[Rfam]
RNA sequence: AGGAGAUAUGAUGAUGGAAUAUUGAUUUCCCUAUUGGUUUGAUAGCCGAUAUGAUGGCAUCUUACGUAUUAGCUCUAUCUGAUCUUCU
Numbered sequence: 001a002g003g004a005g006a007u008a009u010g011a012u013g014a015u016g017g018a019a020u021a022u023u024g025a026u027u028u029c030c031c032u033a034u035u036g037g038u039u040u041g042a043u044a045g046c047c048g049a050u051a052u053g054a055u056g057g058c059a060u061c062u063u064a065c066g067u068a069u070u071a072g073c074u075c076u077a078u079c080u081g082a083u084c085u086u087c088u
Base pairs, nucleotide, nucleotide: 002087003086004085005084041061045058046057047056

Small nucleolar RNA Z102/R77: an 88-nucleotide RNA sequence from Arabis alpina.
The family's consensus secondary structure was predicted with PFOLD.
The family is grouped with related families in Rfam's "SNORD44 clan".
Rfam classes the family as a C/D-box small nucleolar RNA.
For this family Rfam cites "The high diversity of snoRNAs in plants: identification and comparative study of 120 snoRNA genes from Oryza sativa" (Chen et al., Nucleic Acids Res, 2003).